RNA sequence: UGGCGGGUGGGGAGUCCCGGGUACCGCUAACCCUAAUGGCUGUCGCCGCGCUCCCCGCGCCCGCCCGCUGUUUUACUCGCUGACUUUCAGUGGGAGAGGGGAGCAGCCCGGGGAAGGGGGGCGGGGGAAGGACAGGAGAUUGGGGGUCUGCCAUCAAAAAACGUCAGCGAGGGGGCUCCUCACCCCGGCCCGCCCUGGGGUCCCCGUGUCCCCAACCCUGCCCCGCAGUCGGGGGAUCGCUGCGGAGGCUCCCGCCGCCGCAUCGCCCGCAGGCCGCGGUCGGCCGGCUCCCGCCACUGCCGCCGCGAAGAGUUCGUCUCUGUCAGCCUCGGCGGCGUCCGGGAGAAGAGGGGCGCGUUCCCCGCCUCCUCCUCCGCGCCCAGGGGGUCCCAGCAGAGCAAAACGGGAGCGGCGCCCACCGGCCCGACCCGCCGCGCUUCCCUCAGCCGUGGGGUGCGCGGCCGGCGCCGCUCCGACACCC
Numbered sequence: 001u002g003g004c005g006g007g008u009g010g011g012g013a014g015u016c017c018c019g020g021g022u023a024c025c026g027c028u029a030a031c032c033c034u035a036a037u038g039g040c041u042g043u044c045g046c047c048g049c050g051c052u053c054c055c056c057g058c059g060c061c062c063g064c065c066c067g068c069u070g071u072u073u074u075a076c077u078c079g080c081u082g083a084c085u086u087u088c089a090g091u092g093g094g095a096g097a098g099g100g101g102a103g104c105a106g107c108c109c110g111g112g113g114a115a116g117g118g119g120g121g122c123g124g125g126g127g128a129a130g131g132a133c134a135g136g137a138g139a140u141u142g143g144g145g146g147u148c149u150g151c152c153a154u155c156a157a158a159a160a161a162c163g164u165c166a167g168c169g170a171g172g173g174g175g176c177u178c179c180u181c182a183c184c185c186c187g188g189c190c191c192g193c194c195c196u197g198g199g200g201u202c203c204c205c206g207u208g209u210c211c212c213c214a215a216c217c218c219u220g221c222c223c224c225g226c227a228g229u230c231g232g233g234g235g236a237u238c239g240c241u242g243c244g245g246a247g248g249c250u251c252c253c254g255c256c257g258c259c260g261c262a263u264c265g266c267c268c269g270c271a272g273g274c275c276g277c278g279g280u281c282g283g284c285c286g287g288c289u290c291c292c293g294c295c296a297c298u299g300c301c302g303c304c305g306c307g308a309a310g311a312g313u314u315c316g317u318c319u320c321u322g323u324c325a326g327c328c329u330c331g332g333c334g335g336c337g338u339c340c341g342g343g344a345g346a347a348g349a350g351g352g353g354c355g356c357g358u359u360c361c362c363c364g365c366c367u368c369c370u371c372c373u374c375c376g377c378g379c380c381c382a383g384g385g386g387g388u389c390c391c392a393g394c395a396g397a398g399c400a401a402a403a404c405g406g407g408a409g410c411g412g413c414g415c416c417c418a419c420c421g422g423c424c425c426g427a428c429c430c431g432c433c434g435c436g437c438u439u440c441c442c443u444c445a446g447c448c449g450u451g452g453g454g455u456g457c458g459c460g461g462c463c464g465g466c467g468c469c470g471c472u473c474c475g476a477c478a479c480c481c
Base pairs, nucleotide, nucleotide: 002190003189004188005185006184007183008182009181010180011179012178014176015175016174017173018172050104051103052102053101054100062096064094065093066092067091068090069089070088079168080167081166082165083164084163085161086160087159195393196392197391198390199389200388201387232363233362234361235360236359238357239356240355249345250344251343252342253341254340257336258335259334260333261332275307276306277305278304279303281302282301283300284299286295287294288293309321310320311319312318407473408472409471410470411469412468413467414466415465416464432461433460434459435458436457439454440453441452442451
RNA: Vertebrate telomerase RNA
Organism: Rostratula benghalensis